[Rfam]
RNA: tRNA
RNA sequence: GGCGGGAUAGCUCAGUCGGUAGAGCAGCGGACUGAAAAUCCGCGUGUCCCCAGUUCAAUUCUGGGUCCCGCCA
Numbered sequence: 001g002g003c004g005g006g007a008u009a010g011c012u013c014a015g016u017c018g019g020u021a022g023a024g025c026a027g028c029g030g031a032c033u034g035a036a037a038a039u040c041c042g043c044g045u046g047u048c049c050c051c052a053g054u055u056c057a058a059u060u061c062u063g064g065g066u067c068c069c070g071c072c073a
Base pairs, nucleotide, nucleotide: 001072002071003070004069005068006067007066010025011024012023013022027043028042029041030040031039049065050064051063052062053061